[Rfam]
RNA sequence: CUCUCGCCCGCGGGAGAGACCGGAUUAAAAUCCGGCGCCGAAGGAGCAACGACCCGGAAACUCUCAGGCAAACGGACCGCGGAGCGUAA
Numbered sequence: 001c002u003c004u005c006g007c008c009c010g011c012g013g014g015a016g017a018g019a020c021c022g023g024a025u026u027a028a029a030a031u032c033c034g035g036c037g038c039c040g041a042a043g044g045a046g047c048a049a050c051g052a053c054c055c056g057g058a059a060a061c062u063c064u065c066a067g068g069c070a071a072a073c074g075g076a077c078c079g080c081g082g083a084g085c086g087u088a089a
Stems, first nucleotide, its partner, number of pairs: 008082006020035004037069003040065002044063003050056002
The family of this 89-nucleotide RNA from Octadecabacter arcticus is "Glycine riboswitch aptamer". Gene Ontology term of the family: glycine biosynthetic process.